[Rfam]
RNA sequence: AGAUACCAGGGGAAAAAGUCUAAAAUCACGAUGUGCUUGCACAAAAGUGAUUUUAAGACUUUAUGCCCCGCCCCACAUAUGAGCAUAAAAGUGCGGCGUAAGCUGCACGAUAUGCGAAUGUGGGCGAAGAUUGCGGGAGUGUGAAACACGGAGCAAUCUUCUGGUAUCU
Number, nucleotide and partner (000 for none) at each position: 001a169002g168003a167004u166005a165006c164007c163008a000009g000010g068011g067012g066013a000014a000015a000016a061017a060018g059019u058020c057021u056022a054023a053024a052025a051026u050027c049028a048029c047030g000031a000032u043033g042034u041035g040036c000037u000038u000039g000040c035041a034042c033043a032044a000045a000046a000047g029048u028049g027050a026051u025052u024053u023054u022055a000056a021057g020058a019059c018060u017061u016062u000063a000064u000065g000066c012067c011068c010069c000070g000071c000072c000073c000074c124075a000076c122077a121078u120079a119080u118081g000082a000083g115084c114085a113086u112087a000088a000089a000090a000091g108092u107093g106094c105095g104096g103097c102098g000099u000100a000101a000102g097103c096104u095105g094106c093107a092108c091109g000110a000111u000112a086113u085114g084115c083116g000117a000118a080119u079120g078121u077122g076123g000124g074125c000126g000127a000128a159129g158130a157131u156132u155133g154134c153135g000136g000137g000138a000139g149140u148141g147142u146143g000144a000145a000146a142147c141148a140149c139150g000151g000152a000153g134154c133155a132156a131157u130158c129159u128160u000161c000162u000163g007164g006165u005166a004167u003168c002169u001

Record summary:
The family of this 169-nucleotide RNA from Oscillospiraceae bacterium Marseille-Q3528 is "Clostridiales-1 RNA". The base pairs follow the family's consensus structure, which is taken from published work. A search with the family's covariance model found it, with a score of 131 bits. The organism belongs to Oscillospiraceae, within Bacteria.